The record is a 64-nucleotide sequence from Electrophorus electricus, which matches "Selenocysteine insertion sequence 1" in Rfam. The family's RNA type in Rfam is cis-regulatory element.

[Rfam]
RNA sequence: CCUGGAAUAAUGACGGCUUGUCCUCAAACCUGCAUCCAGGUUGGACAGGCCUGAUGACCCCUGG
Numbered sequence: 001c002c003u004g005g006a007a008u009a010a011u012g013a014c015g016g017c018u019u020g021u022c023c024u025c026a027a028a029c030c031u032g033c034a035u036c037c038a039g040g041u042u043g044g045a046c047a048g049g050c051c052u053g054a055u056g057a058c059c060c061c062u063g064g
Stems, first nucleotide, its partner, number of pairs: 001064002004061002015051009030039003
Source information
The incorporation of selenocysteine into a protein sequence is directed by an in-frame UGA codon (usually a stop codon) within the coding region of the mRNA. Selenoprotein mRNAs contain a conserved secondary structure in the 3' UTR that is required for the distinction of UGA stop from UGA selenocysteine. The selenocysteine insertion sequence (SECIS) is around 60 nt in length and adopts a hairpin structure which is sufficiently well-defined and conserved to act as a computational screen for selenoprotein genes.